[Rfam]
This 227-nucleotide part of an RNA from Pyrenochaeta sp. MPI-SDFR-AT-0127 belongs to the Rfam family "Eukaryotic large subunit ribosomal RNA". The base pairs follow the family's consensus structure, which is taken from published work.
RNA sequence: CGCUUAUAGCUAGACUUACCUAUAGUUACUUAUCUAGGCUUUUACCUAGUAUACUCUUCUAUAGGUAGGCUAGUAUUAGUUUAGAUAGUUAAAUAAAGGUCUCUAUUAUAUACCUCCCUUUAGAGAGAUUUUAUAGGGGAGAUAAUAUAUAACUAGCCUAGACUAAAAUCUACGUAUCUACUAGGAUACUAGCGUAAUAGCUAUAAGCGGCCUAUCUUAAAAUAUAG
Numbered sequence: 001c002g003c004u005u006a007u008a009g010c011u012a013g014a015c016u017u018a019c020c021u022a023u024a025g026u027u028a029c030u031u032a033u034c035u036a037g038g039c040u041u042u043u044a045c046c047u048a049g050u051a052u053a054c055u056c057u058u059c060u061a062u063a064g065g066u067a068g069g070c071u072a073g074u075a076u077u078a079g080u081u082u083a084g085a086u087a088g089u090u091a092a093a094u095a096a097a098g099g100u101c102u103c104u105a106u107u108a109u110a111u112a113c114c115u116c117c118c119u120u121u122a123g124a125g126a127g128a129u130u131u132u133a134u135a136g137g138g139g140a141g142a143u144a145a146u147a148u149a150u151a152a153c154u155a156g157c158c159u160a161g162a163c164u165a166a167a168a169u170c171u172a173c174g175u176a177u178c179u180a181c182u183a184g185g186a187u188a189c190u191a192g193c194g195u196a197a198u199a200g201c202u203a204u205a206a207g208c209g210g211c212c213u214a215u216c217u218u219a220a221a222a223u224a225u226a227g
Base pairs, nucleotide, nucleotide: 001209002208003207004206005205006204007203008202009201010200011199012198017067018066019065020064021063022062023061024060071191072190073189074188075187076186077185212227213226214225215224